[Rfam]
A member of the RNA family "Ribosomal protein L10 leader" from Sporofaciens musculi, 145 nucleotides long. Rfam links the family to the GO term regulation of gene expression. It scores 65 bits against the family's covariance model. The family's consensus secondary structure was predicted with CMfinder. Lineage of the source: Bacteria > Bacillati > Bacillota > Lachnospiraceae > Sporofaciens. The literature on the family includes a 2015 paper in Nucleic Acids Res by Yakhnin et al., "Ribosomal protein L10(L12)4 autoregulates expression of the Bacillus subtilis rplJL operon by a transcription attenuation mechanism". Rfam's curators write: This family is a putative r-protein leader autoregulatory structure found in B. subtilis and other low-GC Gram-positive bacteria.
Nucleotides: 145
Base pairs, nucleotide, nucleotide: 028069029068030067031066032065033064034049035048036047108130109129110128111127112126113125114124115123116122117121
Number, partner (000 for none) and nucleotide at each position: 001000u002000a003000u004000a005000g006000u007000a008000a009000c010000a011000a012000a013000a014000g015000g016000c017000u018000g019000c020000c021000g022000a023000a024000g025000a026000c027000a028069g029068c030067a031066g032065g033064u034049g035048c036047u037000c038000g039000a040000u041000g042000a043000u044000a045000a046000g047036a048035g049034c050000g051000u052000a053000a054000g055000u056000a057000u058000a059000c060000c061000a062000a063000c064033g065032c066031c067030u068029g069028c070000c071000g072000a073000g074000g075000a076000a077000a078000g079000u080000u081000a082000g083000a084000u085000u086000c087000g088000u089000u090000g091000a092000c093000u094000a095000u096000g097000a098000a099000u100000u101000a102000a103000c104000a105000a106000u107000a108130c109129c110128u111127c112126u113125g114124u115123g116122u117121c118000u119000u120000u121117g122116a123115u124114g125113c126112g127111g128110a129109g130108g131000u132000u133000u134000u135000u136000u137000c138000a139000u140000a141000c142000c143000a144000u145000a